[Rfam]
RNA sequence: AUGCAAAUCGGCCUGAAGCGCUUUAUGCCUAUGGGAAUAUCCAUAAUAGUCGCACCGUAUGCCUCCCCGGCAUAGACAGGUAAGA
Numbered sequence: 001a002u003g004c005a006a007a008u009c010g011g012c013c014u015g016a017a018g019c020g021c022u023u024u025a026u027g028c029c030u031a032u033g034g035g036a037a038u039a040u041c042c043a044u045a046a047u048a049g050u051c052g053c054a055c056c057g058u059a060u061g062c063c064u065c066c067c068c069g070g071c072a073u074a075g076a077c078a079g080g081u082a083a084g085a
Base pairs, nucleotide, nucleotide: 018053019052020051023046024045025044026043027042030039031038032037058074059073060072061071062070063069
RNA: Bacteroides-1 RNA